Fluoride riboswitch aptamer (crcB RNA motif): a 72-nucleotide sequence from Chitinophaga solisilvae. It scores 46 bits against the family's covariance model. NCBI's taxonomy places the organism under Bacteria, Pseudomonadati, Bacteroidota, Chitinophagales, Chitinophaga.

RNA sequence: UGCUGCACAGGAAAUGGUGUCUUCCUGACCCAAACCGUUUCGCUAACCGGAACUGAUGGCGCCUACAAAUAA
Numbered sequence: 001u002g003c004u005g006c007a008c009a010g011g012a013a014a015u016g017g018u019g020u021c022u023u024c025c026u027g028a029c030c031c032a033a034a035c036c037g038u039u040u041c042g043c044u045a046a047c048c049g050g051a052a053c054u055g056a057u058g059g060c061g062c063c064u065a066c067a068a069a070u071a072a
Base pairs, nucleotide, nucleotide: 010025011024012023013022016063017062018061019060020059021058037053038052039051040050041049042048